[Rfam]
RNA sequence: GCCCCCAUAGCUCAGCGGAUAGAGCACCCGCCUUCUAAGCGGUAGGUCGCAGGUUCGAAUCCUGCUGGGGGCG
Number, nucleotide and partner (000 for none) at each position: 001g072002c071003c070004c069005c068006c067007a066008u000009a000010g025011c024012u023013c022014a000015g000016c000017g000018g000019a000020u000021a000022g013023a012024g011025c010026a000027c000028c042029c041030g040031c039032c000033u000034u000035c000036u000037a000038a000039g031040c030041g029042g028043u000044a000045g000046g000047u000048c000049g065050c064051a063052g062053g061054u000055u000056c000057g000058a000059a000060u000061c053062c052063u051064g050065c049066u007067g006068g005069g004070g003071g002072c001073g000
RNA: tRNA
Organism: Kitasatospora aureofaciens